[Rfam]
RNA sequence: AUCAGCGGGGAAAGAAGACCCUGUUGAGCUUGACUCUAGUUUGACAUUGUGAAAAGACAUAGAGGGUGUAGAAUAAGUGGGAGGCUUUGCCGACAGUGAAAUACCACUACCUUUAUCGUUUUUUUACUUACAGAAUUAUUAAUUAAAGAUAUACUAUCUAAUUUUAGAAGCUUUAUCAAUUUGUUCAGGACAUUGUCAGGUGGGGAGUUUGGCUGGGGCGGCACAUCUGUUAAAUAAUAACGCAGGUGUCCAAAGGGGAGCUCAUCAGGAACAGAAAUCUUGAGUAGAAUAAAAGGGUAAAAGCUCCCUUGAUUUUGAUUUUCAGUGUGAAUACAAACCAUGAAAGUGUGGCCUAUCGAUCCUUUUGUUACUUGGAAUUUAAGUCAAGAGGUGUCAGAAAAGUUACCACAGGGAUAACUGGCUUGUGGCAGCCAAGCGUUCAUAGCGACGUUGCUUUUUGAUCCUUCGAUGUCGGCUCUUCCUAUCAUAUUAUAGCAGCAUUUAAUAAGUGUUGGAUUGUUCACCCACUAAUAGGGAACGUGAGCUGGGUUUAGACCGUCGUGAGACAGGUUAGUUUUACCCUACUGAUGGAUA
Numbered sequence: 001a002u003c004a005g006c007g008g009g010g011a012a013a014g015a016a017g018a019c020c021c022u023g024u025u026g027a028g029c030u031u032g033a034c035u036c037u038a039g040u041u042u043g044a045c046a047u048u049g050u051g052a053a054a055a056g057a058c059a060u061a062g063a064g065g066g067u068g069u070a071g072a073a074u075a076a077g078u079g080g081g082a083g084g085c086u087u088u089g090c091c092g093a094c095a096g097u098g099a100a101a102u103a104c105c106a107c108u109a110c111c112u113u114u115a116u117c118g119u120u121u122u123u124u125u126a127c128u129u130a131c132a133g134a135a136u137u138a139u140u141a142a143u144u145a146a147a148g149a150u151a152u153a154c155u156a157u158c159u160a161a162u163u164u165u166a167g168a169a170g171c172u173u174u175a176u177c178a179a180u181u182u183g184u185u186c187a188g189g190a191c192a193u194u195g196u197c198a199g200g201u202g203g204g205g206a207g208u209u210u211g212g213c214u215g216g217g218g219c220g221g222c223a224c225a226u227c228u229g230u231u232a233a234a235u236a237a238u239a240a241c242g243c244a245g246g247u248g249u250c251c252a253a254a255g256g257g258g259a260g261c262u263c264a265u266c267a268g269g270a271a272c273a274g275a276a277a278u279c280u281u282g283a284g285u286a287g288a289a290u291a292a293a294a295g296g297g298u299a300a301a302a303g304c305u306c307c308c309u310u311g312a313u314u315u316u317g318a319u320u321u322u323c324a325g326u327g328u329g330a331a332u333a334c335a336a337a338c339c340a341u342g343a344a345a346g347u348g349u350g351g352c353c354u355a356u357c358g359a360u361c362c363u364u365u366u367g368u369u370a371c372u373u374g375g376a377a378u379u380u381a382a383g384u385c386a387a388g389a390g391g392u393g394u395c396a397g398a399a400a401a402g403u404u405a406c407c408a409c410a411g412g413g414a415u416a417a418c419u420g421g422c423u424u425g426u427g428g429c430a431g432c433c434a435a436g437c438g439u440u441c442a443u444a445g446c447g448a449c450g451u452u453g454c455u456u457u458u459u460g461a462u463c464c465u466u467c468g469a470u471g472u473c474g475g476c477u478c479u480u481c482c483u484a485u486c487a488u489a490u491u492a493u494a495g496c497a498g499c500a501u502u503u504a505a506u507a508a509g510u511g512u513u514g515g516a517u518u519g520u521u522c523a524c525c526c527a528c529u530a531a532u533a534g535g536g537a538a539c540g541u542g543a544g545c546u547g548g549g550u551u552u553a554g555a556c557c558g559u560c561g562u563g564a565g566a567c568a569g570g571u572u573a574g575u576u577u578u579a580c581c582c583u584a585c586u587g588a589u590g591g592a593u594a
Stems, first nucleotide, its partner, number of pairs: 001589005008583003012578002020412004025408002027404005033208004040200007049127010059116007076108005083091002131188001133186003141181004147159005211224001212222003225247006250351002256308006262288002265283006289298002313337003318332004339348003362390006370384004421462001423460001425459001427455006436446002473548001474546004478540001479537005486511002489506004494501001513527003517523001554572004558567003

A member of the RNA family "Eukaryotic large subunit ribosomal RNA" from Entomophaga aulicae, 594 nucleotides of a longer RNA. The base pairs follow the family's consensus structure, which is taken from published work. The organism belongs to Entomophaga, within Eukaryota. It is one of the family's seed sequences.